Shown here is a 94-nucleotide RNA from Turnera subulata, a member of the family "Small nucleolar RNA snoR26". The organism belongs to Turnera, within Eukaryota. Rfam links the family to the GO terms nucleolus and RNA processing. The family has 8 seed sequences and 611 matches in Rfam 15.1. A search with the family's covariance model found it, with a score of 74 bits.

RNA sequence: CGAGCACAUAUGAUGAGUCUUAAUUAAAUUUGUUAUCCGUGCACUUUGAUUACCAGUGAAGAAAACUGUGGGAAAUUAUUUUCCUGAGAUGCUC
Numbered sequence: 001c002g003a004g005c006a007c008a009u010a011u012g013a014u015g016a017g018u019c020u021u022a023a024u025u026a027a028a029u030u031u032g033u034u035a036u037c038c039g040u041g042c043a044c045u046u047u048g049a050u051u052a053c054c055a056g057u058g059a060a061g062a063a064a065a066c067u068g069u070g071g072g073a074a075a076u077u078a079u080u081u082u083c084c085u086g087a088g089a090u091g092c093u094c
Stems, first nucleotide, its partner, number of pairs: 002094005